[Rfam]
RNA sequence: GUGUAGUGCGUGAAGGAUAGCAGCGAAAAUCCUUUUUGGUGGCUUUUGGGGCCUCCAAAAAGAUUGUAGCGAAUAGCCUGACCCGCU
Numbered sequence: 001g002u003g004u005a006g007u008g009c010g011u012g013a014a015g016g017a018u019a020g021c022a023g024c025g026a027a028a029a030u031c032c033u034u035u036u037u038g039g040u041g042g043c044u045u046u047u048g049g050g051g052c053c054u055c056c057a058a059a060a061a062g063a064u065u066g067u068a069g070c071g072a073a074u075a076g077c078c079u080g081a082c083c084c085g086c087u
Base pairs, nucleotide, nucleotide: 014079015078016077018075019074023070024069028065029064030063031062034060035059036058037057038056039055041053042052043051044050

Shown here is an 87-nucleotide RNA sequence from Flavobacterium crassostreae, a member of the family "Flavo-1 RNA". It scores 60 bits against the family's covariance model. It is annotated as a small RNA.